[Rfam]
RNA sequence: UGCCCCCUUUGCACUUUGCCAAUUGGACUUAUGCCUUAAUUGGUGGGGGCAAAGGAAAUAUCCUUUUAAAACUCAGGCAAACUGGUGUUUGUCUUGUAUCCUGUCAAAGGAAACAAAU
Number, nucleotide and partner (000 for none) at each position: 001u000002g000003c000004c000005c000006c000007c000008u000009u000010u000011g000012c000013a000014c000015u000016u000017u000018g000019c000020c000021a000022a000023u000024u000025g000026g000027a000028c000029u000030u000031a000032u051033g050034c049035c048036u047037u000038a000039a000040u000041u000042g000043g000044u000045g000046g000047g036048g035049g034050c033051a032052a000053a000054g000055g000056a000057a000058a000059u000060a000061u111062c110063c109064u108065u107066u106067u000068a000069a000070a000071a000072c000073u000074c096075a094076g093077g092078c091079a090080a089081a088082c087083u000084g000085g000086u000087g082088u081089u080090u079091g078092u077093c076094u075095u000096g074097u000098a000099u000100c000101c000102u000103g000104u000105c000106a066107a065108a064109g063110g062111a061112a000113a000114c000115a000116a000117a000118u000
Rfam assigns this 118-nucleotide RNA from Otolemur garnettii to the family "Small nucleolar RNA SNORA27". NCBI's taxonomy places the organism under Eukaryota, Bilateria, Theria, Strepsirrhini, Otolemur. A search with the family's covariance model found it, with a score of 124 bits. Its Rfam clan is "SNORA27 clan".